RNA sequence: CGAGCACUUGAUUGUCCAAACGCAAUUCUUGUUUAAUGUCAAGAGAUAAAUCGAGAAUUGUGCAUGGACAUCUGUUGCUGG
Number, nucleotide and partner (000 for none) at each position: 001c000002g000003a079004g078005c077006a076007c000008u000009u000010g072011a071012u070013u000014g069015u068016c067017c066018a065019a000020a000021c062022g061023c060024a059025a058026u057027u056028c055029u054030u053031g052032u000033u000034u000035a000036a000037u000038g000039u000040c000041a000042a000043g000044a000045g000046a000047u000048a000049a000050a000051u000052c031053g030054a029055g028056a027057a026058u025059u024060g023061u022062g021063c000064a000065u018066g017067g016068a015069c014070a012071u011072c010073u000074g000075u000076u006077g005078c004079u003080g000081g000

Rfam assigns this 81-nucleotide sequence from Triplophysa tibetana to the family "mir-219 microRNA precursor family". A search with the family's covariance model found it, with a score of 69 bits. Pairs were carried over by alignment from the consensus structure, which was predicted with RNAalifold. Rfam links the family to the GO terms RISC complex and miRNA-mediated post-transcriptional gene silencing.